[Rfam]
RNA: mir-305 microRNA precursor family
RNA sequence: CAUGUUAAUUGUACUUCAUCAGGUGCUCUGGUGUAAUUAGAAACCCGGCGCCUGCUGGAGCGCAAUUCAUAUG
Numbered sequence: 001c002a003u004g005u006u007a008a009u010u011g012u013a014c015u016u017c018a019u020c021a022g023g024u025g026c027u028c029u030g031g032u033g034u035a036a037u038u039a040g041a042a043a044c045c046c047g048g049c050g051c052c053u054g055c056u057g058g059a060g061c062g063c064a065a066u067u068c069a070u071a072u073g
Stems, first nucleotide, its partner, number of pairs: 001073004010064003014060005020054002023051005030045002